[Rfam]
This 48-nucleotide RNA sequence from Dendrosporobacter quercicolus belongs to the Rfam family "ssnA RNA". A search with the family's covariance model found it, with a score of 39 bits. NCBI's taxonomy places the organism under Bacteria, Bacillati, Bacillota, Selenomonadales, Dendrosporobacter. The family's consensus secondary structure is taken from published work.
RNA sequence: UACGUUUUGGCUGUAAGGGACUGCUUCGCGCACGGGCUAUAUGUUUCU
Numbered sequence: 001u002a003c004g005u006u007u008u009g010g011c012u013g014u015a016a017g018g019g020a021c022u023g024c025u026u027c028g029c030g031c032a033c034g035g036g037c038u039a040u041a042u043g044u045u046u047c048u
Stems, first nucleotide, its partner, number of pairs: 008039005022032003